[Rfam]
A member of the RNA family "Small nucleolar RNA SNORA28" from Alligator sinensis, 127 nucleotides long. The organism belongs to Alligator, within Eukaryota. A reference for the family is Huttenhofer et al. (2001), "RNomics: an experimental approach that identifies 201 candidates for novel, small, non-messenger RNAs in mouse", EMBO J. It scores 99 bits against the family's covariance model. Rfam links the family to the GO terms nucleolus and RNA processing. Pairs were carried over by alignment from the consensus structure, which was predicted with RNAfold. By type it is an H/ACA-box small nucleolar RNA. ACA28 is a member of the H/ACA class of snoRNA that guide the sites of modification of uridines to pseudouridines.
RNA sequence: AAGCAACACUCUGUGGUAGACAUCCAUGUUGCCUGCUGCAAUUUUAAGCUUGCUAUAACAAAGAAGUCUAACCUAUUCCAGUGGUCUCUGCUUUGUGAGAUCAUCUUGUUAUAUAGGCUUGGACAAC
Numbered sequence: 001a002a003g004c005a006a007c008a009c010u011c012u013g014u015g016g017u018a019g020a021c022a023u024c025c026a027u028g029u030u031g032c033c034u035g036c037u038g039c040a041a042u043u044u045u046a047a048g049c050u051u052g053c054u055a056u057a058a059c060a061a062a063g064a065a066g067u068c069u070a071a072c073c074u075a076u077u078c079c080a081g082u083g084g085u086c087u088c089u090g091c092u093u094u095g096u097g098a099g100a101u102c103a104u105c106u107u108g109u110u111a112u113a114u115a116g117g118c119u120u121g122g123a124c125a126a127c
Stems, first nucleotide, its partner, number of pairs: 009048002012040004017035003021031002064120007074113003079108001080106002087100003